The family of this 69-nucleotide sequence is "L13-Bacteroidia ribosomal protein leader".
RNA sequence: AGACUGUAAUGGUCUAAAAUUCUGUGCGUUAAUAGUCUUGCCUUUGGCCGGGCAGAUGGUUAGGAACAC
Numbered sequence: 001a002g003a004c005u006g007u008a009a010u011g012g013u014c015u016a017a018a019a020u021u022c023u024g025u026g027c028g029u030u031a032a033u034a035g036u037c038u039u040g041c042c043u044u045u046g047g048c049c050g051g052g053c054a055g056a057u058g059g060u061u062a063g064g065a066a067c068a069c
Stems, first nucleotide, its partner, number of pairs: 001015005029063005035057003039054005

The literature on the family includes a 2020 paper in BMC Microbiol by Eckert and Weinberg, "Discovery of 20 novel ribosomal leader candidates in bacteria and archaea".
The family's RNA type in Rfam is cis-regulatory leader.